[Rfam]
RNA sequence: GGGCAAUGAUGAUAAAACAGGAAAGUCAUGCACCACUCUGAUAUUCAUUGUGAUCGAUAAACUUUCUCAUUACCCAUAUUAUGUUUCUGAGCCU
Numbered sequence: 001g002g003g004c005a006a007u008g009a010u011g012a013u014a015a016a017a018c019a020g021g022a023a024a025g026u027c028a029u030g031c032a033c034c035a036c037u038c039u040g041a042u043a044u045u046c047a048u049u050g051u052g053a054u055c056g057a058u059a060a061a062c063u064u065u066c067u068c069a070u071u072a073c074c075c076a077u078a079u080u081a082u083g084u085u086u087c088u089g090a091g092c093c094u
Base pairs, nucleotide, nucleotide: 001094002093003092004091

The record is a 94-nucleotide sequence from Lactuca sativa, which matches "Small nucleolar RNA Z221/R21b" in Rfam. Pairs were carried over by alignment from the consensus structure, which was predicted with WAR. Taxonomically the source falls in Lactuca (Eukaryota, Mesangiospermae, eudicotyledons, Pentapetalae). Rfam 15.1 lists 588 matches to the family in 222 species.